Rfam assigns this 73-nucleotide sequence from Roseivivax halotolerans to the family "Singlet oxygen resistance RNA X". It is annotated as a small RNA. Rfam describes the family as follows. SorX (RSs2461)like SorY is a singlet oxygen induced sRNA that counteracts oxidative stress by targeting mRNA for a transporter in Rhodobacter. Pairs were carried over by alignment from the consensus structure. It scores 81 bits against the family's covariance model.

RNA sequence: GCCCGUUGCAUGUGCGGGACCUCACAUGCACCUCCCUGUUGGACUGGCCCGGGCUUCGCGCCCGGGCCUUUUU
Numbered sequence: 001g002c003c004c005g006u007u008g009c010a011u012g013u014g015c016g017g018g019a020c021c022u023c024a025c026a027u028g029c030a031c032c033u034c035c036c037u038g039u040u041g042g043a044c045u046g047g048c049c050c051g052g053g054c055u056u057c058g059c060g061c062c063c064g065g066g067c068c069u070u071u072u073u
Base pairs, nucleotide, nucleotide: 008029009028010027011026012025013024014023047067048066049065050064051063052062053061054060